[Rfam]
RNA sequence: GGCAUCCUGGUGCUUAACACAGGCUGUGUUCUUACACUUACUGUAUAACAAGAGGAGGCAAAGUGAAUCUACCCCAUAUACACAUCAUCCCCUGCCCUGUGUCUGGUCUAUAUUGUGAAUGGGGAGACAUGG
Numbered sequence: 001g002g003c004a005u006c007c008u009g010g011u012g013c014u015u016a017a018c019a020c021a022g023g024c025u026g027u028g029u030u031c032u033u034a035c036a037c038u039u040a041c042u043g044u045a046u047a048a049c050a051a052g053a054g055g056a057g058g059c060a061a062a063g064u065g066a067a068u069c070u071a072c073c074c075c076a077u078a079u080a081c082a083c084a085u086c087a088u089c090c091c092c093u094g095c096c097c098u099g100u101g102u103c104u105g106g107u108c109u110a111u112a113u114u115g116u117g118a119a120u121g122g123g124g125a126g127a128c129a130u131g132g
Stems, first nucleotide, its partner, number of pairs: 002059002005056004020043003026037004072124006087109001090106002094102002
The family of this 132-nucleotide RNA from Castor canadensis is "Small nucleolar RNA SNORA51".
The match comes from Rfam's covariance-model search (122 bits).
The family's RNA type in Rfam is H/ACA-box small nucleolar RNA.